[Rfam]
RNA sequence: GGCCGCCGACCAGGAGAGUGCUUCAUCCGAAGCCGCCGAAGGCGCAGGGCCACGCCCCGAACGCUCAGGCAAAAGGACUGGUCGGCGCCG
Numbered sequence: 001g002g003c004c005g006c007c008g009a010c011c012a013g014g015a016g017a018g019u020g021c022u023u024c025a026u027c028c029g030a031a032g033c034c035g036c037c038g039a040a041g042g043c044g045c046a047g048g049g050c051c052a053c054g055c056c057c058c059g060a061a062c063g064c065u066c067a068g069g070c071a072a073a074a075g076g077a078c079u080g081g082u083c084g085g086c087g088c089c090g
Stems, first nucleotide, its partner, number of pairs: 006085008020033004035070003038066002042064003048058002